This 81-nucleotide RNA sequence from Argiope bruennichi belongs to the Rfam family "HDV ribozyme from F. prausnitzii". The match comes from Rfam's covariance-model search (44 bits). A reference for the family is Webb et al. (2009), "Widespread occurrence of self-cleaving ribozymes", Science. NCBI's taxonomy places the organism under Eukaryota, Protostomia, Arachnida, Araneomorphae, Argiope.
RNA sequence: GAGGAACGAUGGUAGCCCACCUCCUCGUGGUGUUCCUCGGGCAACGCUCUGGCUUGUGUCAGUAGUGGCUAAGAGGCUACU
Number, nucleotide and partner (000 for none) at each position: 001g038002a037003g036004g035005a034006a033007c032008g000009a000010u000011g000012g000013u000014a000015g000016c000017c000018c000019a031020c030021c029022u000023c000024c000025u000026c000027g000028u000029g021030g020031u019032g007033u006034u005035c004036c003037u002038c001039g000040g000041g000042c000043a000044a000045c067046g066047c065048u064049c000050u000051g000052g000053c000054u000055u000056g000057u000058g000059u000060c000061a000062g000063u000064a048065g047066u046067g045068g000069c000070u000071a000072a000073g000074a000075g000076g000077c000078u000079a000080c000081u000